[Rfam]
RNA sequence: UGAGAUGACAUUAGCGUUUUGAUAUGCGAUUUCAUGUUGAUUUCAUCUCAUG
Numbered sequence: 001u002g003a004g005a006u007g008a009c010a011u012u013a014g015c016g017u018u019u020u021g022a023u024a025u026g027c028g029a030u031u032u033c034a035u036g037u038u039g040a041u042u043u044c045a046u047c048u049c050a051u052g
Base pairs, nucleotide, nucleotide: 001050002049003048004047005046006045007044008043010041011040012039013038014037015036016035017034018029019028